[Rfam]
Nucleotides: 069
Base pairs, nucleotide, nucleotide: 005065006064007063008062009061010060011059012058013057015055016054017053018052019051020050023047024046
Number, partner (000 for none) and nucleotide at each position: 001000c002000c003000u004000u005065u006064c007063c008062u009061u010060a011059u012058c013057a014000c015055u016054u017053u018052u019051c020050c021000a022000g023047c024046c025000a026000g027000c028000u029000u030000u031000g032000u033000g034000a035000c036000u037000c038000u039000a040000a041000g042000u043000g044000u045000u046024g047023g048000a049000c050020g051019g052018a053017g054016a055015a056000c057013u058012g059011a060010u061009a062008a063007g064006g065005g066000u067000a068000g069000g